[Rfam]
RNA: mir-216 microRNA precursor family
Organism: Microcaecilia unicolor
RNA sequence: AAAUGACUUAAUCUCAGCUGGCAACUGUGAGCAGUAAAUAAAUUCUCCCACAGUGGUCCCUGGGAUUAUGUUAAAC
Numbered sequence: 001a002a003a004u005g006a007c008u009u010a011a012u013c014u015c016a017g018c019u020g021g022c023a024a025c026u027g028u029g030a031g032c033a034g035u036a037a038a039u040a041a042a043u044u045c046u047c048c049c050a051c052a053g054u055g056g057u058c059c060c061u062g063g064g065a066u067u068a069u070g071u072u073a074a075a076c
Stems, first nucleotide, its partner, number of pairs: 004073004009068009020058003023054001026052004031047001